[Rfam]
RNA sequence: UUAAAUUCGUUGACGAGAACGAGUAUGCAUAAAUCCUGUUCUGCAGAGAGUUGGUGCCUUUUGCUGAAAACCAAUGUUCAGUUUAUGUUGAAAAUCCUCUCCGAGAAGAAAAGCUGAAGAUUCAUUUUAAGCCUUUCCGGGGAUCCGCCGUUACAAGGAUCGCGUAUGAUAGUACGUUGUUUGAGUGCCGGCACAUUUAUUACAAGUAAUUUCCGGAAUCAGGGUGGUAACACGGGUUAAACUCGUCCCUACU
Numbered sequence: 001u002u003a004a005a006u007u008c009g010u011u012g013a014c015g016a017g018a019a020c021g022a023g024u025a026u027g028c029a030u031a032a033a034u035c036c037u038g039u040u041c042u043g044c045a046g047a048g049a050g051u052u053g054g055u056g057c058c059u060u061u062u063g064c065u066g067a068a069a070a071c072c073a074a075u076g077u078u079c080a081g082u083u084u085a086u087g088u089u090g091a092a093a094a095u096c097c098u099c100u101c102c103g104a105g106a107a108g109a110a111a112a113g114c115u116g117a118a119g120a121u122u123c124a125u126u127u128u129a130a131g132c133c134u135u136u137c138c139g140g141g142g143a144u145c146c147g148c149c150g151u152u153a154c155a156a157g158g159a160u161c162g163c164g165u166a167u168g169a170u171a172g173u174a175c176g177u178u179g180u181u182u183g184a185g186u187g188c189c190g191g192c193a194c195a196u197u198u199a200u201u202a203c204a205a206g207u208a209a210u211u212u213c214c215g216g217a218a219u220c221a222g223g224g225u226g227g228u229a230a231c232a233c234g235g236g237u238u239a240a241a242c243u244c245g246u247c248c249c250u251a252c253u
Stems, first nucleotide, its partner, number of pairs: 007106002015101004027088005041076001050075006109136003113132003138150003188216004193211001221250004232246005
The record is a 253-nucleotide RNA sequence from Lentibacillus populi, which matches "T-box leader" in Rfam. Taxonomically the source falls in Lentibacillus (Bacteria, Bacillota, Bacilli, Bacillaceae). Gene Ontology term of the family: tRNA binding. The family has 48 seed sequences and 19,395 matches in Rfam 15.1. A search with the family's covariance model found it, with a score of 120 bits.